[Rfam]
This 128-nucleotide RNA from Hyphomonas neptunium belongs to the Rfam family "Molybdenum/Tungsten riboswitch aptamer (Moco RNA motif)".

RNA sequence: GUUGGAAAUUCGCUCCGAGCCGUUCCGCCUAAAGCGCCGUUUCCCGGUGUCAUGGCGGCCCGGCCGAGGGUGGCAGUUGGAAACCCUGCCGCCUCCCGUGCUUGGAAAGGAGCCAUGCGAUGACACAU
Numbered sequence: 001g002u003u004g005g006a007a008a009u010u011c012g013c014u015c016c017g018a019g020c021c022g023u024u025c026c027g028c029c030u031a032a033a034g035c036g037c038c039g040u041u042u043c044c045c046g047g048u049g050u051c052a053u054g055g056c057g058g059c060c061c062g063g064c065c066g067a068g069g070g071u072g073g074c075a076g077u078u079g080g081a082a083a084c085c086c087u088g089c090c091g092c093c094u095c096c097c098g099u100g101c102u103u104g105g106a107a108a109g110g111a112g113c114c115a116u117g118c119g120a121u122g123a124c125a126c127a128u
Stems, first nucleotide, its partner, number of pairs: 003122002012113005019064004025058005034050006068094009079084001095105002